[Rfam]
RNA sequence: AGCAGCAAAGAUAAAAACACAGUUCCGGUUGGUAGUCCGGACGCAGCUUAAACUGUCAGUAACCUACCUCCUUGGUUGUCCGUUCUUUGCAAGGCAGAC
Numbered sequence: 001a002g003c004a005g006c007a008a009a010g011a012u013a014a015a016a017a018c019a020c021a022g023u024u025c026c027g028g029u030u031g032g033u034a035g036u037c038c039g040g041a042c043g044c045a046g047c048u049u050a051a052a053c054u055g056u057c058a059g060u061a062a063c064c065u066a067c068c069u070c071c072u073u074g075g076u077u078g079u080c081c082g083u084u085c086u087u088u089g090c091a092a093g094g095c096a097g098a099c
Stems, first nucleotide, its partner, number of pairs: 005090007022042002025040004043056004066076003
RNA: azaaromatic riboswitch aptamer (yjdF RNA)
Organism: Clostridium luticellarii